A member of the RNA family "malK-I RNA", 177 nucleotides long.
RNA sequence: CCAACCGCUGUCCGGACACUCCACUUCUUGCCCGGCGGCGGCAACUUAAAGGAGGAAGAUCCGCUGUGACUGGCGGUGCGGCAGUGUGGAGACCUGUCGUAAUGCGGCGCGCCGGAAGGCGGCUGCGAGGCGGCUUUUUGCGGAGGCAGAGCGGCUACAGUCAAUACGAAUAUGGCA
Numbered sequence: 001c002c003a004a005c006c007g008c009u010g011u012c013c014g015g016a017c018a019c020u021c022c023a024c025u026u027c028u029u030g031c032c033c034g035g036c037g038g039c040g041g042c043a044a045c046u047u048a049a050a051g052g053a054g055g056a057a058g059a060u061c062c063g064c065u066g067u068g069a070c071u072g073g074c075g076g077u078g079c080g081g082c083a084g085u086g087u088g089g090a091g092a093c094c095u096g097u098c099g100u101a102a103u104g105c106g107g108c109g110c111g112c113c114g115g116a117a118g119g120c121g122g123c124u125g126c127g128a129g130g131c132g133g134c135u136u137u138u139u140g141c142g143g144a145g146g147c148a149g150a151g152c153g154g155c156u157a158c159a160g161u162c163a164a165u166a167c168g169a170a171u172a173u174g175g176c177a
Base pairs, nucleotide, nucleotide: 006040007039008038009037010036011035013034014033015032017030018029061076062075063074064073067163068162069161070160071159072158077101078100079099080098081097082096083095084094086093087092104126105125106124107123108122110121111120112119129156130155131154133152134151135150136149139148140147141146